[Rfam]
RNA sequence: UCAAAAUUAGUCACUUGUCAUUUUCUAAUUGUUUCUUAGAAAAUUUGAACACACUAAUAACCAAUUAGAAAAUGACAAGUGGUUAGUUUUGG
Numbered sequence: 001u002c003a004a005a006a007u008u009a010g011u012c013a014c015u016u017g018u019c020a021u022u023u024u025c026u027a028a029u030u031g032u033u034u035c036u037u038a039g040a041a042a043a044u045u046u047g048a049a050c051a052c053a054c055u056a057a058u059a060a061c062c063a064a065u066u067a068g069a070a071a072a073u074g075a076c077a078a079g080u081g082g083u084u085a086g087u088u089u090u091g092g
Stems, first nucleotide, its partner, number of pairs: 002091030033060002036057004
Rfam assigns this 92-nucleotide sequence from Prunus armeniaca to the family "MIR6288 microRNA precursor family". NCBI's taxonomy places the organism under Eukaryota, Viridiplantae, Streptophyta, Rosales, Prunus. Pairs were carried over by alignment from the consensus structure, which was predicted with RNAalifold.